ROOL RNA: a 584-nucleotide RNA from Enterococcus saccharolyticus.
From the family's description: Firmicutes, Fusobacteria (1 example), Tenericutes (1 example).
The family's consensus secondary structure is taken from published work.
RNA sequence: UUUGAAAACAGGUGAAUCGUUGAACUCUGUGAAGAGCGUCUAAACAACGUGCAGUAGAUGAUUUGGGAUCAGACCUUGCUGUCGUUUGAUGGGAUACUGUCGAUUGAUGAGUUGAGAAGUAUGGUGACAUAUGACGAACGAGGAGUAAAAGCUCCUUAAGGCGAAGAAUCAUGCAAAGUAUUGCUAGAUAUAAGGUAUCGUAGCUUACGGGGAGGACAAUAAAAAGCGUAGCGAAAAACGCUCGCCUCUCCUUGCUGGCGCUUAAAAAGGGAUUUUUAAGAAAGUCGAAGGAACAUCCAACCAACUCCUAUGCUGUGAAGGUUAGAAAUAACCUAUAACGUAAGAAGCGAGUAAAAGUAGCUCAAAGGCAGAAAUUAAACCUAGUUAUGGUAGACAAAUUGACUGAAUGUUUGAGUGAAAUUUGUGGUCCGUUGUGAUCGACAGCACUUAAGGUUGUUUUCAACUGUAUAAAGCAAGAGAAAGUUUCAGGUCGCUCCUGAGGCUCAGUCUUCUUGGGUGCGUGACUGAAUAAUAUCACACCAAUAUGGCGUAGAGAGAAAUACUCCAAUGAUUCAUUUGUUUUG
Numbered sequence: 001u002u003u004g005a006a007a008a009c010a011g012g013u014g015a016a017u018c019g020u021u022g023a024a025c026u027c028u029g030u031g032a033a034g035a036g037c038g039u040c041u042a043a044a045c046a047a048c049g050u051g052c053a054g055u056a057g058a059u060g061a062u063u064u065g066g067g068a069u070c071a072g073a074c075c076u077u078g079c080u081g082u083c084g085u086u087u088g089a090u091g092g093g094a095u096a097c098u099g100u101c102g103a104u105u106g107a108u109g110a111g112u113u114g115a116g117a118a119g120u121a122u123g124g125u126g127a128c129a130u131a132u133g134a135c136g137a138a139c140g141a142g143g144a145g146u147a148a149a150a151g152c153u154c155c156u157u158a159a160g161g162c163g164a165a166g167a168a169u170c171a172u173g174c175a176a177a178g179u180a181u182u183g184c185u186a187g188a189u190a191u192a193a194g195g196u197a198u199c200g201u202a203g204c205u206u207a208c209g210g211g212g213a214g215g216a217c218a219a220u221a222a223a224a225a226g227c228g229u230a231g232c233g234a235a236a237a238a239c240g241c242u243c244g245c246c247u248c249u250c251c252u253u254g255c256u257g258g259c260g261c262u263u264a265a266a267a268a269g270g271g272a273u274u275u276u277u278a279a280g281a282a283a284g285u286c287g288a289a290g291g292a293a294c295a296u297c298c299a300a301c302c303a304a305c306u307c308c309u310a311u312g313c314u315g316u317g318a319a320g321g322u323u324a325g326a327a328a329u330a331a332c333c334u335a336u337a338a339c340g341u342a343a344g345a346a347g348c349g350a351g352u353a354a355a356a357g358u359a360g361c362u363c364a365a366a367g368g369c370a371g372a373a374a375u376u377a378a379a380c381c382u383a384g385u386u387a388u389g390g391u392a393g394a395c396a397a398a399u400u401g402a403c404u405g406a407a408u409g410u411u412u413g414a415g416u417g418a419a420a421u422u423u424g425u426g427g428u429c430c431g432u433u434g435u436g437a438u439c440g441a442c443a444g445c446a447c448u449u450a451a452g453g454u455u456g457u458u459u460u461c462a463a464c465u466g467u468a469u470a471a472a473g474c475a476a477g478a479g480a481a482a483g484u485u486u487c488a489g490g491u492c493g494c495u496c497c498u499g500a501g502g503c504u505c506a507g508u509c510u511u512c513u514u515g516g517g518u519g520c521g522u523g524a525c526u527g528a529a530u531a532a533u534a535u536c537a538c539a540c541c542a543a544u545a546u547g548g549c550g551u552a553g554a555g556a557g558a559a560a561u562a563c564u565c566c567a568a569u570g571a572u573u574c575a576u577u578u579g580u581u582u583u584g
Stems, first nucleotide, its partner, number of pairs: 007581016025057002027054003036050004060170005080109003084105001086103007112138002116135001119132005142155005177546001181542001183540001195526001198350004204344006210309005226241004249292005261280007270298003311370004320333005354421001360416006402508004444520003453469001474515006482504002484501002487499004553565003